[Rfam]
RNA: mir-19 microRNA precursor family
RNA sequence: AGUUUUGCAGGUUUGCAUUUCAGCGUAUAUAUGUGUAUAUGGCUGUGCAAAUCCAUGCAAAACUGA
Numbered sequence: 001a002g003u004u005u006u007g008c009a010g011g012u013u014u015g016c017a018u019u020u021c022a023g024c025g026u027a028u029a030u031a032u033g034u035g036u037a038u039a040u041g042g043c044u045g046u047g048c049a050a051a052u053c054c055a056u057g058c059a060a061a062a063c064u065g066a
Stems, first nucleotide, its partner, number of pairs: 001064009010054002012051007022044003
Dot-bracket structure: ((((((((((((((((((...(((.................)))))))))).)).)))))))))..